[Rfam]
RNA sequence: AAAAUAAAGGAGCAAAAAGCAUCUUCUUGAUAGAACAAGAAGGUGAUUUUUGCUCCUUUAU
Numbered sequence: 001a002a003a004a005u006a007a008a009g010g011a012g013c014a015a016a017a018a019g020c021a022u023c024u025u026c027u028u029g030a031u032a033g034a035a036c037a038a039g040a041a042g043g044u045g046a047u048u049u050u051u052g053c054u055c056c057u058u059u060a061u
Base pairs, nucleotide, nucleotide: 006059007058008057009056010055011054012053013052014051015050016049017048021044022043024041025040026039027038028037029036
The record is a 61-nucleotide RNA sequence from Asclepias syriaca, which matches "Plastid-psbA-4 3UTR RNA" in Rfam. The base pairs follow the family's consensus structure, which was predicted with LocARNA. Plastid psbA-4 is a non-coding RNA (ncRNA) present in plastids. It was identified in inverted repeat sequences in the 3 prime untranslate region (3UTR) of photosystem II quinone-binding protein (psbA). Rfam classes the family as a cis-regulatory element. Rfam's curators put it in the seed alignment.